[Rfam]
RNA: L31-Actinobacteria ribosomal protein leader
RNA sequence: CUGGCUCCGGUUCACGUCGCGCGUCCCGCGCUGACGACCCGGGGCGCC
Number, nucleotide and partner (000 for none) at each position: 001c000002u000003g048004g047005c046006u000007c042008c041009g040010g039011u000012u000013c000014a000015c036016g035017u034018c033019g031020c030021g029022c028023g000024u000025c000026c000027c000028g022029c021030g020031c019032u000033g018034a017035c016036g015037a000038c000039c010040c009041g008042g007043g000044g000045c000046g005047c004048c003